[Rfam]
Nucleotides: 261
Base pairs, nucleotide, nucleotide: 001159002158003157004156005155006154007153008152011145012144013143014142017045018044019043020042021041022040023039047102048101049100050099051098055096056095057094062089063088064087065086066085067082068081069080070079071078072077106140107139108138113133114132115131116130117129162174163173164172176259179257180256181255182254183199184198185197186196187195204250205249206248207246208245209244210243211242213239214238220233221232222231223230224229
Number, partner (000 for none) and nucleotide at each position: 001159g002158g003157a004156a005155a006154c007153u008152u009000g010000a011145g012144a013143g014142g015000a016000g017045c018044u019043g020042u021041c022040c023039c024000u025000a026000g027000u028000a029000c030000g031000a032000g033000a034000g035000g036000a037000c038000c039023g040022g041021g042020a043019u044018g045017g046000a047102c048101a049100g050099a051098c052000c053000g054000c055096u056095g057094g058000c059000g060000u061000a062089c063088c064087a065086g066085u067082u068081g069080u070079c071078c072077c073000g074000c075000c076000a077072g078071g079070g080069g081068c082067a083000g084000c085066g086065c087064u088063g089062g090000g091000u092000a093000c094057c095056c096055a097000a098051g099050u100049c101048u102047g103000g104000u105000g106140g107139g108138g109000a110000u111000a112000a113133g114132c115131g116130c117129u118000g119000a120000a121000a122000g123000c124000a125000u126000c127000u128000a129117a130116g131115c132114g133113c134000g135000a136000a137000g138108c139107c140106c141000c142014c143013c144012u145011c146000a147000a148000g149000a150000u151000a152008a153007g154006g155005u156004u157003u158002c159001c160000c161000a162174u163173g164172g165000a166000g167000u168000u169000a170000a171000u172164c173163c174162a175000g176259u177000a178000a179257g180256a181255c182254c183199c184198c185197u186196g187195g188000a189000a190000g191000a192000c193000u194000a195187c196186c197185a198184g199183g200000u201000a202000g203000a204250u205249a206248g207246g208245c209244c210243g211242g212000g213239c214238g215000u216000g217000u218000a219000a220233g221232c222231c223230g224229g225000g226000u227000a228000a229224c230223c231222g232221g233220u234000u235000g236000a237000g238214c239213g240000g241000a242211c243210c244209g245208g246207u247000a248206c249205u250204a251000a252000u253000a254182g255181g256180u257179c258000g259176a260000g261000g

The record is a 261-nucleotide part of an RNA from Desulfofundulus salinus, which matches "Bacterial large subunit ribosomal RNA" in Rfam. The source organism's lineage runs through Bacteria, Bacillota, Clostridia, Eubacteriales and Desulfofundulus. It scores 2907 bits against the family's covariance model. The family has 102 seed sequences and 51,934 matches in Rfam 15.1.